Rfam assigns this 139-nucleotide sequence from Drosophila sechellia to the family "Small nucleolar RNA psi18S-841/snoR66". The match comes from Rfam's covariance-model search (111 bits). Rfam 15.1 lists 108 matches to the family in 46 species. NCBI's taxonomy places the organism under Eukaryota, Allotriocarida, Pterygota, Drosophilidae, Sophophora. Pairs were carried over by alignment from the consensus structure, which was predicted with RNAfold. The family is grouped with related families in Rfam's "SNORA28 clan". psi18S-841 is a member of the H/ACA class of snoRNA. This family is responsible for guiding the modification of uridine 841 in Drosophila 18S rRNA to pseudouridine.
[Rfam]
RNA sequence: UGCAAAUGCACUCUGUGUCACAUCGAAUUUAACUACAUGUGAAAACAAUUUGUUAGUUUGCUAUAGGAAAGAGAUGAGACUUAUCCGUGCAAUUAGUGCCGUAAAAGGUUGAUUGCAUUGAAAUCGCAUUUUACACUAA
Numbered sequence: 001u002g003c004a005a006a007u008g009c010a011c012u013c014u015g016u017g018u019c020a021c022a023u024c025g026a027a028u029u030u031a032a033c034u035a036c037a038u039g040u041g042a043a044a045a046c047a048a049u050u051u052g053u054u055a056g057u058u059u060g061c062u063a064u065a066g067g068a069a070a071g072a073g074a075u076g077a078g079a080c081u082u083a084u085c086c087g088u089g090c091a092a093u094u095a096g097u098g099c100c101g102u103a104a105a106a107g108g109u110u111g112a113u114u115g116c117a118u119u120g121a122a123a124u125c126g127c128a129u130u131u132u133a134c135a136c137u138a139a
Stems, first nucleotide, its partner, number of pairs: 002061006010053002014047003018042006025036001068137001070132003074129003084121002087118008096109002